[Rfam]
RNA sequence: CGUGCGCCGUCGCCGAAUCACAAAGCGCCCCCACCAGGGCGCGGCGAGAACCGGGGAACCACUUUCCUUGGGGUGAAUCGGGGAGCCGUAACCAUCCGGCCCUCCGUAGGAGACCUUCCUGCUCCGAACCCGUCAGCUAACCCGGUAGGCGAGAAGGAAGGAAAGG
Numbered sequence: 001c002g003u004g005c006g007c008c009g010u011c012g013c014c015g016a017a018u019c020a021c022a023a024a025g026c027g028c029c030c031c032c033a034c035c036a037g038g039g040c041g042c043g044g045c046g047a048g049a050a051c052c053g054g055g056g057a058a059c060c061a062c063u064u065u066c067c068u069u070g071g072g073g074u075g076a077a078u079c080g081g082g083g084a085g086c087c088g089u090a091a092c093c094a095u096c097c098g099g100c101c102c103u104c105c106g107u108a109g110g111a112g113a114c115c116u117u118c119c120u121g122c123u124c125c126g127a128a129c130c131c132g133u134c135a136g137c138u139a140a141c142c143c144g145g146u147a148g149g150c151g152a153g154a155a156g157g158a159a160g161g162a163a164a165g166g
Stems, first nucleotide, its partner, number of pairs: 011151004018049002050146006060070002071131003079106004109125004

Shown here is a 166-nucleotide RNA from Streptomyces sp. DJ, a member of the family "c-di-AMP riboswitch aptamer (ydaO/yuaA leader)".
Its family is annotated with cyclic-di-AMP binding and regulation of gene expression in the Gene Ontology.
It scores 85 bits against the family's covariance model.
Taxonomically the source falls in Streptomyces (Bacteria, Actinomycetota, Actinomycetes, Kitasatosporales).